[Rfam]
RNA: FMN riboswitch aptamer (RFN element)
RNA sequence: AUUCAUCUUCGGGGUCGGUGAAAUUCCGAGCCGGCGGUAAAAGCCCGCGACCUGCAUUAUGCAGCUGAUUUGGUGUAAUUCCAAAGCCGACAGUACAGUCUGGAUGGGAGAAGAUGGAG
Numbered sequence: 001a002u003u004c005a006u007c008u009u010c011g012g013g014g015u016c017g018g019u020g021a022a023a024u025u026c027c028g029a030g031c032c033g034g035c036g037g038u039a040a041a042a043g044c045c046c047g048c049g050a051c052c053u054g055c056a057u058u059a060u061g062c063a064g065c066u067g068a069u070u071u072g073g074u075g076u077a078a079u080u081c082c083a084a085a086g087c088c089g090a091c092a093g094u095a096c097a098g099u100c101u102g103g104a105u106g107g108g109a110g111a112a113g114a115u116g117g118a119g
Stems, first nucleotide, its partner, number of pairs: 003117008016028003030099002032089002034048004043087002052064002069085005091102003